This 47-nucleotide RNA belongs to the Rfam family "uup RNA". It is one of the family's seed sequences. Pairs were carried over by alignment from the consensus structure, which is taken from published work.
Nucleotides: 047
Base pairs, nucleotide, nucleotide: 011046012045013044014043015042017040018039019038
Number, partner (000 for none) and nucleotide at each position: 001000g002000g003000c004000g005000a006000a007000u008000c009000a010000g011046c012045u013044c014043c015042a016000u017040a018039c019038a020000a021000a022000u023000g024000a025000a026000a027000c028000c029000g030000a031000u032000g033000a034000a035000c036000a037000u038019u039018g040017u041000a042015u043014g044013g045012a046011g047000c